[Rfam]
RNA: Glycine riboswitch aptamer
RNA sequence: AACAGGCAAUCUGGAGAGUGCCGGCGCGCCCGUAUCGGGUCUUCGGCCACCGAAGGGGCAAUACGGACGAUAUUCCGUAAUCUCUCAGGUAAAAAGGACAGAGGGGUGAGG
Numbered sequence: 001a002a003c004a005g006g007c008a009a010u011c012u013g014g015a016g017a018g019u020g021c022c023g024g025c026g027c028g029c030c031c032g033u034a035u036c037g038g039g040u041c042u043u044c045g046g047c048c049a050c051c052g053a054a055g056g057g058g059c060a061a062u063a064c065g066g067a068c069g070a071u072a073u074u075c076c077g078u079a080a081u082c083u084c085u086c087a088g089g090u091a092a093a094a095a096g097g098a099c100a101g102a103g104g105g106g107u108g109a110g111g
Stems, first nucleotide, its partner, number of pairs: 007105001010102004020047004049090003052086002056084003062077001
Dot-bracket structure: ......(..((((......((((....................)))).(((((..(((...(..............)....))))).)))........))))..)......